Rfam assigns this 209-nucleotide RNA sequence from Drosophila sechellia to the family "U12 minor spliceosomal RNA". The family's RNA type in Rfam is spliceosomal small nuclear RNA.
RNA sequence: GUGCCUCAAACUAAUGAGUAAGGAUAACCAAGAUGCCUUGCUAAUCGCUUGGCAGUAUUGGCUUCUAGGCAGGGGGGCGUCCUGCGCCCCUUGAAGCUCAAUUUUUGCAAGGGCACAGGUCGUCCCCUCCUCCCCCGCGUGGGUGGCGUUCCACCGAGCGAACCGGCGCCUACUUUGCGUCCGGCUAGCGAGGAUCUGGGUGCCAUCCC
Numbered sequence: 001g002u003g004c005c006u007c008a009a010a011c012u013a014a015u016g017a018g019u020a021a022g023g024a025u026a027a028c029c030a031a032g033a034u035g036c037c038u039u040g041c042u043a044a045u046c047g048c049u050u051g052g053c054a055g056u057a058u059u060g061g062c063u064u065c066u067a068g069g070c071a072g073g074g075g076g077g078c079g080u081c082c083u084g085c086g087c088c089c090c091u092u093g094a095a096g097c098u099c100a101a102u103u104u105u106u107g108c109a110a111g112g113g114c115a116c117a118g119g120u121c122g123u124c125c126c127c128u129c130c131u132c133c134c135c136c137g138c139g140u141g142g143g144u145g146g147c148g149u150u151c152c153a154c155c156g157a158g159c160g161a162a163c164c165g166g167c168g169c170c171u172a173c174u175u176u177g178c179g180u181c182c183g184g185c186u187a188g189c190g191a192g193g194a195u196c197u198g199g200g201u202g203c204c205a206u207c208c209c
Stems, first nucleotide, its partner, number of pairs: 004023003008019001034054004040048001056096001058094003141208011154193002158189002161186001165181005